Record summary
The family of this 110-nucleotide RNA sequence is "Small nucleolar RNA SNORD89". Rfam describes the family as follows. snoRNA HBII-289 belongs to the family of C/D snoRNAs. It is the human orthologue of the mouse MBII-289 and has no identified RNA target. The family's consensus secondary structure was predicted with RNAalifold. Gene Ontology terms of the family: RNA processing and nucleolus. For this family Rfam cites "RNomics: an experimental approach that identifies 201 candidates for novel, small, non-messenger RNAs in mouse" (Huttenhofer et al., EMBO J, 2001).
RNA sequence: GCUGAGGAGUGAUGACAUAAAAGGCCGAAUUGCAGUGUCUCCAUCAACAGUUGGCUCUCUGAGCACACGAUGACAAAACCUCCUGAAGCGAGUCACUGUCUGACCUCAGU
Numbered sequence: 001g002c003u004g005a006g007g008a009g010u011g012a013u014g015a016c017a018u019a020a021a022a023g024g025c026c027g028a029a030u031u032g033c034a035g036u037g038u039c040u041c042c043a044u045c046a047a048c049a050g051u052u053g054g055c056u057c058u059c060u061g062a063g064c065a066c067a068c069g070a071u072g073a074c075a076a077a078a079c080c081u082c083c084u085g086a087a088g089c090g091a092g093u094c095a096c097u098g099u100c101u102g103a104c105c106u107c108a109g110u
Stems, first nucleotide, its partner, number of pairs: 001110007014100003024033002034097004040091002042088001044086003050068002054064004069082002072079001